Record summary
DUF805b RNA: a 35-nucleotide RNA. It is annotated as a cis-regulatory element.
RNA sequence: ACCGGGGAAGCCGAAAACCGGAUUUAGAGUAGGCG
Numbered sequence: 001a002c003c004g005g006g007g008a009a010g011c012c013g014a015a016a017a018c019c020g021g022a023u024u025u026a027g028a029g030u031a032g033g034c035g
Stems, first nucleotide, its partner, number of pairs: 002021004010034003
Dot-bracket structure: .((((....[[[.....))))..........]]].